[Rfam]
RNA sequence: GCUGCCGCUCCGGGGUGCACAUCCGUGCUGAGAUGGCCAUCACGCCGAACCCGCGAACUUGAUCCGGUUCAUACCGGCGGAAGAAGAGCUGAAUCUGUCCCU
Numbered sequence: 001g002c003u004g005c006c007g008c009u010c011c012g013g014g015g016u017g018c019a020c021a022u023c024c025g026u027g028c029u030g031a032g033a034u035g036g037c038c039a040u041c042a043c044g045c046c047g048a049a050c051c052c053g054c055g056a057a058c059u060u061g062a063u064c065c066g067g068u069u070c071a072u073a074c075c076g077g078c079g080g081a082a083g084a085a086g087a088g089c090u091g092a093a094u095c096u097g098u099c100c101c102u
Stems, first nucleotide, its partner, number of pairs: 007089004011053004016047001017028004035046003058083003064077004
A member of the RNA family "TPP riboswitch aptamer (THI element)" from Caldimonas brevitalea, 102 nucleotides long. Pairs were carried over by alignment from the consensus structure, which is taken from published work. Rfam describes the family as follows. Vitamin B(1) in its active form thiamin pyrophosphate (TPP) is an essential coenzyme that is synthesised by coupling of pyrimidine and thiazole moieties in bacteria.